[Rfam]
RNA sequence: AAAAGAGUAAGAGGAAAACGUUAAGUGCUGGGUGGAUGGGAUGUUGCCUCCAGACGAAGAAACGGUAGUUUUGCGAUUUUUCUCUGCAUCCGCUUGA
Number, nucleotide and partner (000 for none) at each position: 001a000002a000003a095004a094005g093006a000007g000008u000009a000010a085011g084012a083013g082014g081015a080016a079017a078018a077019c075020g074021u073022u000023a000024a000025g055026u054027g000028c053029u052030g051031g050032g049033u000034g048035g047036a000037u000038g000039g091040g090041a089042u088043g087044u000045u000046g000047c035048c034049u032050c031051c030052a029053g028054a026055c025056g000057a000058a000059g072060a071061a070062a069063c000064g000065g000066u000067a000068g000069u062070u061071u060072u059073g021074c020075g019076a000077u018078u017079u016080u015081u014082c013083u012084c011085u010086g000087c043088a042089u041090c040091c039092g000093c005094u004095u003096g000097a000